[Rfam]
RNA: TPP riboswitch aptamer (THI element)
RNA sequence: GCUGGUUUCCAGGGGUGCCCCGGCAGGGGCUGAGACACCGCAGGCCGGCCGCCAGGGGCGGACAGGCGCGCGGGAACCCUUAGAACCUGAUCCGGGUCGUACCGGCGUAGGGAUGGAACCGGCGGAUGCCC
Number, nucleotide and partner (000 for none) at each position: 001g000002c000003u000004g000005g000006u000007u118008u117009c116010c115011a080012g079013g078014g077015g000016u074017g030018c029019c028020c027021c026022g000023g000024c000025a000026g021027g020028g019029g018030c017031u000032g000033a000034g000035a000036c000037a000038c073039c072040g071041c070042a000043g000044g000045c000046c000047g000048g000049c000050c000051g000052c000053c000054a000055g000056g000057g000058g000059c000060g000061g000062a000063c000064a000065g000066g000067c000068g000069c000070g041071c040072g039073g038074g016075a000076a000077c014078c013079c012080u011081u000082a000083g000084a000085a000086c111087c110088u109089g108090a000091u000092c105093c104094g103095g102096g000097u000098c000099g000100u000101a000102c095103c094104g093105g092106c000107g000108u089109a088110g087111g086112g000113a000114u000115g010116g009117a008118a007119c000120c000121g000122g000123c000124g000125g000126a000127u000128g000129c000130c000131c000